[Rfam]
RNA sequence: GUUUAUCUUCAGGGCAGGGUGCAAUUCCCGACCGGCGGUAUAGUCCGCGACCUACCUUUUGGUAGUUGAUUUGGUGUAAUUCCAAAACCGACAGUAAAGUCUGGUAUAAAGAAGGUUAAA
Numbered sequence: 001g002u003u004u005a006u007c008u009u010c011a012g013g014g015c016a017g018g019g020u021g022c023a024a025u026u027c028c029c030g031a032c033c034g035g036c037g038g039u040a041u042a043g044u045c046c047g048c049g050a051c052c053u054a055c056c057u058u059u060u061g062g063u064a065g066u067u068g069a070u071u072u073g074g075u076g077u078a079a080u081u082c083c084a085a086a087a088c089c090g091a092c093a094g095u096a097a098a099g100u101c102u103g104g105u106a107u108a109a110a111g112a113a114g115g116u117u118a119a120a
Stems, first nucleotide, its partner, number of pairs: 003118001005116006017029003031100002033090002035048004043088002052065002070086005092103003
This 120-nucleotide sequence from Lentilactobacillus senioris belongs to the Rfam family "FMN riboswitch aptamer (RFN element)".
NCBI's taxonomy places the organism under Bacteria, Lactobacillales, Lactobacillaceae, Lentilactobacillus, Lentilactobacillus senioris.
Gene Ontology term of the family: FMN binding.
For this family Rfam cites "An mRNA structure that controls gene expression by binding FMN" (Winkler et al., Proc Natl Acad Sci U S A, 2002).